[Rfam]
RNA sequence: GUGCAUCCAAUAGGAAUUGAACCUAUGAAUUCACUGAAUUAGGUGCUUCAACCAUUCAACCAUGGAUGC
Dot-bracket structure: ..((((((.(((((.......)))))........((..((.((((.......)))).)).)).))))))
Numbered sequence: 001g002u003g004c005a006u007c008c009a010a011u012a013g014g015a016a017u018u019g020a021a022c023c024u025a026u027g028a029a030u031u032c033a034c035u036g037a038a039u040u041a042g043g044u045g046c047u048u049c050a051a052c053c054a055u056u057c058a059a060c061c062a063u064g065g066a067u068g069c
Stems, first nucleotide, its partner, number of pairs: 003069006010026005035062002039059002042056004